[Rfam]
RNA sequence: CCAACGGCUCUUUUCAGAGCCACACACAAACUCUCAAUGAGCAUCU
Numbered sequence: 001c002c003a004a005c006g007g008c009u010c011u012u013u014u015c016a017g018a019g020c021c022a023c024a025c026a027c028a029a030a031c032u033c034u035c036a037a038u039g040a041g042c043a044u045c046u
Stems, first nucleotide, its partner, number of pairs: 006021006